This 155-nucleotide RNA sequence from Lachnospiraceae bacterium A10 belongs to the Rfam family "Ribosomal protein L10 leader". Rfam classes the family as a cis-regulatory leader. The match comes from Rfam's covariance-model search (76 bits).

RNA sequence: AAUGCGAAAAGCAUGUUGCCGAAGACAGUAGGUGCCGCAAGGCGUAACGUAUACAACCUACCGAGGAUGUACAAGUCAGACCGAGUGAUCGCGGUCGUUAUGAUUUGAACUAUUUACCUCUCUGUCGUUUGGCAGAGAGGUUUUUUAUACCUCAG
Numbered sequence: 001a002a003u004g005c006g007a008a009a010a011g012c013a014u015g016u017u018g019c020c021g022a023a024g025a026c027a028g029u030a031g032g033u034g035c036c037g038c039a040a041g042g043c044g045u046a047a048c049g050u051a052u053a054c055a056a057c058c059u060a061c062c063g064a065g066g067a068u069g070u071a072c073a074a075g076u077c078a079g080a081c082c083g084a085g086u087g088a089u090c091g092c093g094g095u096c097g098u099u100a101u102g103a104u105u106u107g108a109a110c111u112a113u114u115u116a117c118c119u120c121u122c123u124g125u126c127g128u129u130u131g132g133c134a135g136a137g138a139g140g141u142u143u144u145u146u147a148u149a150c151c152u153c154a155g
Stems, first nucleotide, its partner, number of pairs: 028061006034043003117140010